[Rfam]
Nucleotides: 072
Base pairs, nucleotide, nucleotide: 001071002070003069005067006066007065010024011023012022013021026042027041028040029039030038048064049063050062051061052060
Number, partner (000 for none) and nucleotide at each position: 001071g002070c003069c004000u005067c006066c007065u008000u009000a010024g011023c012022u013021u014000a015000g016000u017000g018000g019000u020000a021013g022012a023011g024010c025000g026042u027041u028040g029039c030038a031000c032000u033000u034000g035000u036000a037000a038030u039029g040028c041027a042026g043000a044000g045000g046000u047000c048064g049063c050062u051061a052060g053000u054000u055000c056000a057000a058000u059000u060052c061051u062050g063049g064048c065007a066006g067005g068000u069003g070002g071001c072000a